[Rfam]
RNA sequence: AACGCUCAUUCGCGGUUCAUCUUCAUACCUCCCUGUUGGACUUCGGCCGAGCUUUGAGCUCGGCCUUUUUU
Numbered sequence: 001a002a003c004g005c006u007c008a009u010u011c012g013c014g015g016u017u018c019a020u021c022u023u024c025a026u027a028c029c030u031c032c033c034u035g036u037u038g039g040a041c042u043u044c045g046g047c048c049g050a051g052c053u054u055u056g057a058g059c060u061c062g063g064c065c066u067u068u069u070u071u
Stems, first nucleotide, its partner, number of pairs: 008026002012021001045065008
RNA: Singlet oxygen resistance RNA X